[Rfam]
RNA sequence: UACAGAGUAGGACUUUGUGCGUUAAGUGUCCUGUGAACGGGGAGUUGUCACGGGAACGAAAAGAAUUUUCUUGCGAUACAAAAUCCGCAUCCCGCUGUU
Numbered sequence: 001u002a003c004a005g006a007g008u009a010g011g012a013c014u015u016u017g018u019g020c021g022u023u024a025a026g027u028g029u030c031c032u033g034u035g036a037a038c039g040g041g042g043a044g045u046u047g048u049c050a051c052g053g054g055a056a057c058g059a060a061a062a063g064a065a066u067u068u069u070c071u072u073g074c075g076a077u078a079c080a081a082a083a084u085c086c087g088c089a090u091c092c093c094g095c096u097g098u099u
Stems, first nucleotide, its partner, number of pairs: 002098004010086003014082006020075003026057002029055008040092003044088001061072004
Dot-bracket structure: .((((....(((.(((((((((...((.((((((((...[[[.[...))))))))))...((((....))))))).)))))).))).].]]]..)))).
The family of this 99-nucleotide RNA sequence from Anaerotignum lactatifermentans is "THF (Tetrahydrofolate) riboswitch aptamer".
NCBI's taxonomy places the organism under Bacteria, Bacillati, Lachnospirales, Anaerotignaceae, Anaerotignum lactatifermentans.
It scores 94 bits against the family's covariance model.
Rfam 15.1 lists 747 matches to the family in 747 species.
On this family, see Ames et al., Chem Biol 2010: "A eubacterial riboswitch class that senses the coenzyme tetrahydrofolate".
Rfam links the family to the GO term tetrahydrofolate metabolic process.